Burkholderia RNA 7 (anti-hemB): an 84-nucleotide sequence from Parazoarcus communis. The base pairs follow the family's consensus structure, which is taken from published work. A search with the family's covariance model found it, with a score of 73 bits. Rfam classes the family as a small RNA. The organism belongs to Parazoarcus communis, within Bacteria.
RNA sequence: UCCCCCGCUUCACCUCCCUGAGCGGGGCCCUGACAACCUCGGGGCUUUUUGCCCCCGGCACUCCCUUAGCCGGGGGUUUUUAUU
Numbered sequence: 001u002c003c004c005c006c007g008c009u010u011c012a013c014c015u016c017c018c019u020g021a022g023c024g025g026g027g028c029c030c031u032g033a034c035a036a037c038c039u040c041g042g043g044g045c046u047u048u049u050u051g052c053c054c055c056c057g058g059c060a061c062u063c064c065c066u067u068a069g070c071c072g073g074g075g076g077u078u079u080u081u082a083u084u
Stems, first nucleotide, its partner, number of pairs: 004026006027045007052076008